[Rfam]
RNA sequence: AUAUUAGAUUUAUAUUAUAUUAAUAAUAAAUAGAAUAAAGCUCUAAGGAGCGACUUCGUAAAAUGUUAAAUCGUAUACGAUCCUUUUCGAGACCUCGCAGAAAAUUUCUCAAGAAAGAUUAACAGCAUUUUAAAAUGGGGUUACUUUGUUUAUGAUU
Numbered sequence: 001a002u003a004u005u006a007g008a009u010u011u012a013u014a015u016u017a018u019a020u021u022a023a024u025a026a027u028a029a030a031u032a033g034a035a036u037a038a039a040g041c042u043c044u045a046a047g048g049a050g051c052g053a054c055u056u057c058g059u060a061a062a063a064u065g066u067u068a069a070a071u072c073g074u075a076u077a078c079g080a081u082c083c084u085u086u087u088c089g090a091g092a093c094c095u096c097g098c099a100g101a102a103a104a105u106u107u108c109u110c111a112a113g114a115a116a117g118a119u120u121a122a123c124a125g126c127a128u129u130u131u132a133a134a135a136u137g138g139g140g141u142u143a144c145u146u147u148g149u150u151u152a153u154g155a156u157u
Stems, first nucleotide, its partner, number of pairs: 009070004013028006033057003040051004085103004105116004120143004
RNA: OTKONC RNA